RNA sequence: GAUGCAGGAUCGGGAGAAUCCGGGCGGGCCUUCGGGCUGCGGUCCGGUGCCGAAGGAGCAACCGCCCCGGUAAACUCUCAGGCGCAAGGGACCGUUCCUGCGAU
Numbered sequence: 001g002a003u004g005c006a007g008g009a010u011c012g013g014g015a016g017a018a019u020c021c022g023g024g025c026g027g028g029c030c031u032u033c034g035g036g037c038u039g040c041g042g043u044c045c046g047g048u049g050c051c052g053a054a055g056g057a058g059c060a061a062c063c064g065c066c067c068c069g070g071u072a073a074a075c076u077c078u079c080a081g082g083c084g085c086a087a088g089g090g091a092c093c094g095u096u097c098c099u100g101c102g103a104u
Stems, first nucleotide, its partner, number of pairs: 006099004011094003020047006049083003052079002056077003062070002
RNA: Glycine riboswitch aptamer
Organism: Rhodobacter sp. SGA-6-6